[Rfam]
RNA sequence: GGAGAUUUGACGGGGGCUGCUCCUAGUACGAGAGGACCGGAGUGGACGCACCGCUGGUGUACCGGUUAUGACGCCAGUCGUAUCGCCGGGUAGCUAAGUGCGGAAGAGAUAACCGCUGAAAGCAUCUAAGCGGGAAACUUGCCUGAAGAUAAGAUCUCCCGGGGACUUGAUCCCCCUAAAGGGUCGUCGAAGACUACGACGUUGAUAGGUCGGGUGUGGAAGCGCAGUAAUGCGUUAAGCUAACCGAUACUAAUUGCCCGUGCG
Numbered sequence: 001g002g003a004g005a006u007u008u009g010a011c012g013g014g015g016g017c018u019g020c021u022c023c024u025a026g027u028a029c030g031a032g033a034g035g036a037c038c039g040g041a042g043u044g045g046a047c048g049c050a051c052c053g054c055u056g057g058u059g060u061a062c063c064g065g066u067u068a069u070g071a072c073g074c075c076a077g078u079c080g081u082a083u084c085g086c087c088g089g090g091u092a093g094c095u096a097a098g099u100g101c102g103g104a105a106g107a108g109a110u111a112a113c114c115g116c117u118g119a120a121a122g123c124a125u126c127u128a129a130g131c132g133g134g135a136a137a138c139u140u141g142c143c144u145g146a147a148g149a150u151a152a153g154a155u156c157u158c159c160c161g162g163g164g165a166c167u168u169g170a171u172c173c174c175c176c177u178a179a180a181g182g183g184u185c186g187u188c189g190a191a192g193a194c195u196a197c198g199a200c201g202u203u204g205a206u207a208g209g210u211c212g213g214g215u216g217u218g219g220a221a222g223c224g225c226a227g228u229a230a231u232g233c234g235u236u237a238a239g240c241u242a243a244c245c246g247a248u249a250c251u252a253a254u255u256g257c258c259c260g261u262g263c264g
Base pairs, nucleotide, nucleotide: 001159002158003157004156005155006154007153008152011145012144013143014142017045018044019043020042021041022040023039047102048101049100050099051098055096056095057094062089063088064087065086066085067082068081069080070079071078072077106140107139108138113133114132115131116130117129162176163175164174178261181259182258183257184256185201186200187199188198189197206252207251208250209248210247211246212245213244216240219236222235223234224233225232226231
RNA: Bacterial large subunit ribosomal RNA, nucleotides 3026 to 3289
Organism: Sulfuritortus calidifontis